[Rfam]
RNA sequence: CCUUGAAAAAAGCAUAUCUUAUAACUCAGUGAAUAGUUCGUUUUCAGACGGACACUGAGGCGCGCUGGUAAGUCAGUUGAUAUUAUACGAAGCAAGGAUACUUGCGGAUACGGCUGUGUCAUAAAAGGUGACGAUUAUGAUGGAGGUUAGUAGCCAAAACGAGAGGUGCGGCGCUCAGUAGUAUGUAGAUAAAGGUAGUAUAUGAGUCGGGGACGCAAUAGAGACACAAGGGGAUUUACGGAAAACCUGUGCCGAAUCAAGUUAGGUGUUGUGUGGGAAACAACGCAGACCUUGAACUUGAAUUGUCGGAGUGAGUCGCAGUUGCUGCGUCAGAAAACUCCCAGAGGUUAAUCUCUGCUGACAGUUCUUCCCAAUAAGUCCUUUCUGCUGUGACGGUUGAGAAAUCGACCUAUAAGACUUGUAAGAAAACUCCGAGUAGGCAAAACGGCGUAUUGAUUAAUGGCUUUUUAACUUUUUAGUGACACUUGUUAUAAAAAGUUCUGAAUUGAUGCUGAAAGGUAUGGGCAACCAAUCCCAUAAGAGCUAUGUAGAAGUAAUUCUUAGGGUAAGAAGUUAAUGAACGACGGUUUAUUGGCUCAGACUUAUCUUCUCUUUGACUGAAUAUAUUUGCGUACUAUGCAGGGUAGGACGAAGGUCCAUAAGAUAUGCUUUUUUCAA
Numbered sequence: 001c002c003u004u005g006a007a008a009a010a011a012g013c014a015u016a017u018c019u020u021a022u023a024a025c026u027c028a029g030u031g032a033a034u035a036g037u038u039c040g041u042u043u044u045c046a047g048a049c050g051g052a053c054a055c056u057g058a059g060g061c062g063c064g065c066u067g068g069u070a071a072g073u074c075a076g077u078u079g080a081u082a083u084u085a086u087a088c089g090a091a092g093c094a095a096g097g098a099u100a101c102u103u104g105c106g107g108a109u110a111c112g113g114c115u116g117u118g119u120c121a122u123a124a125a126a127g128g129u130g131a132c133g134a135u136u137a138u139g140a141u142g143g144a145g146g147u148u149a150g151u152a153g154c155c156a157a158a159a160c161g162a163g164a165g166g167u168g169c170g171g172c173g174c175u176c177a178g179u180a181g182u183a184u185g186u187a188g189a190u191a192a193a194g195g196u197a198g199u200a201u202a203u204g205a206g207u208c209g210g211g212g213a214c215g216c217a218a219u220a221g222a223g224a225c226a227c228a229a230g231g232g233g234a235u236u237u238a239c240g241g242a243a244a245a246c247c248u249g250u251g252c253c254g255a256a257u258c259a260a261g262u263u264a265g266g267u268g269u270u271g272u273g274u275g276g277g278a279a280a281c282a283a284c285g286c287a288g289a290c291c292u293u294g295a296a297c298u299u300g301a302a303u304u305g306u307c308g309g310a311g312u313g314a315g316u317c318g319c320a321g322u323u324g325c326u327g328c329g330u331c332a333g334a335a336a337a338c339u340c341c342c343a344g345a346g347g348u349u350a351a352u353c354u355c356u357g358c359u360g361a362c363a364g365u366u367c368u369u370c371c372c373a374a375u376a377a378g379u380c381c382u383u384u385c386u387g388c389u390g391u392g393a394c395g396g397u398u399g400a401g402a403a404a405u406c407g408a409c410c411u412a413u414a415a416g417a418c419u420u421g422u423a424a425g426a427a428a429a430c431u432c433c434g435a436g437u438a439g440g441c442a443a444a445a446c447g448g449c450g451u452a453u454u455g456a457u458u459a460a461u462g463g464c465u466u467u468u469u470a471a472c473u474u475u476u477u478a479g480u481g482a483c484a485c486u487u488g489u490u491a492u493a494a495a496a497a498g499u500u501c502u503g504a505a506u507u508g509a510u511g512c513u514g515a516a517a518g519g520u521a522u523g524g525g526c527a528a529c530c531a532a533u534c535c536c537a538u539a540a541g542a543g544c545u546a547u548g549u550a551g552a553a554g555u556a557a558u559u560c561u562u563a564g565g566g567u568a569a570g571a572a573g574u575u576a577a578u579g580a581a582c583g584a585c586g587g588u589u590u591a592u593u594g595g596c597u598c599a600g601a602c603u604u605a606u607c608u609u610c611u612c613u614u615u616g617a618c619u620g621a622a623u624a625u626a627u628u629u630g631c632g633u634a635c636u637a638u639g640c641a642g643g644g645u646a647g648g649a650c651g652a653a654g655g656u657c658c659a660u661a662a663g664a665u666a667u668g669c670u671u672u673u674u675u676c677a678a
Stems, first nucleotide, its partner, number of pairs: 007675006019663002025059005036053007061170006075115005086108001088106001093104004117142008127132001145155004181636001188629002194625001195619001198430002201423008209383006225251004257295005266286007274373004386450004395410005433518001439513004500601004524536002540613003543561001551559001564609003569604002573597001575594003579590004647658004
RNA: ROOL RNA